Record summary: A member of the RNA family "Burkholderia sRNA Bp1_Cand684_SIPHT" from Paraburkholderia steynii, 109 nucleotides long. The base pairs follow the family's consensus structure, which was predicted with RNAalifold. It is annotated as a small RNA. The literature on the family includes a 2012 paper in BMC Genomics by Khoo et al., "Computational discovery and RT-PCR validation of novel Burkholderia conserved and Burkholderia pseudomallei unique sRNAs".
[Rfam]
RNA sequence: AGAAAAGUAGGUGCCGCCCCGCACAGGGGCGACGCGUGAAGCUAGAUAACGAAACGCGGAUGCCCGCGCAAACACAAGCAAACCAAACCGCUUGCGCAGCAAACCCCAC
Numbered sequence: 001a002g003a004a005a006a007g008u009a010g011g012u013g014c015c016g017c018c019c020c021g022c023a024c025a026g027g028g029g030c031g032a033c034g035c036g037u038g039a040a041g042c043u044a045g046a047u048a049a050c051g052a053a054a055c056g057c058g059g060a061u062g063c064c065c066g067c068g069c070a071a072a073c074a075c076a077a078g079c080a081a082a083c084c085a086a087a088c089c090g091c092u093u094g095c096g097c098a099g100c101a102a103a104c105c106c107c108a109c
Base pairs, nucleotide, nucleotide: 011073012072015031016030017029018028019027020026058064059063093101094100095099